A member of the RNA family "pemK RNA" from Christensenella minuta, 78 nucleotides long.
RNA sequence: AUCAUGAUACUUGCGCGUAGUCGAGAUCAAGUUCCAGAGCGUGCCCCUGCCGUUGGCAGGGUGGUGAGAUUCCAAUGU
Numbered sequence: 001a002u003c004a005u006g007a008u009a010c011u012u013g014c015g016c017g018u019a020g021u022c023g024a025g026a027u028c029a030a031g032u033u034c035c036a037g038a039g040c041g042u043g044c045c046c047c048u049g050c051c052g053u054u055g056g057c058a059g060g061g062u063g064g065u066g067a068g069a070u071u072c073c074a075a076u077g078u
Base pairs, nucleotide, nucleotide: 012075013044014043015042016041017040018039045061046060047059049057050056051055062074063073064072
NCBI's taxonomy places the organism under Bacteria, Bacillati, Christensenellales, Christensenellaceae, Christensenella. The family's RNA type in Rfam is cis-regulatory element.